A member of the RNA family "SL1 RNA" from Parascaris univalens, 99 nucleotides long. Rfam describes the family as follows. This family represents the SL1 RNA. SL1 is commonly located in the spacer region between 5S-rRNA genes where it is involved in trans-splicing. Trans-splicing is a form of RNA processing. It is annotated as a non-coding RNA gene. It scores 76 bits against the family's covariance model. Its Rfam clan is "SL clan".
RNA sequence: GGUUUAAUUACCCAAGUUUGAGGUAAUUCCGUGUUUCAGCUCAGUGCUUCUGUGGCUUGAAAAUAAAUUUUGGAACGCUUUGCUAAACGGUGAAGCACU
Numbered sequence: 001g002g003u004u005u006a007a008u009u010a011c012c013c014a015a016g017u018u019u020g021a022g023g024u025a026a027u028u029c030c031g032u033g034u035u036u037c038a039g040c041u042c043a044g045u046g047c048u049u050c051u052g053u054g055g056c057u058u059g060a061a062a063a064u065a066a067a068u069u070u071u072g073g074a075a076c077g078c079u080u081u082g083c084u085a086a087a088c089g090g091u092g093a094a095g096c097a098c099u
Stems, first nucleotide, its partner, number of pairs: 003031001006028007034062004039056003077096007
Dot-bracket structure: ..(..(((((((.........)))))))..)..((((.(((............)))..))))..............(((((((......)))))))...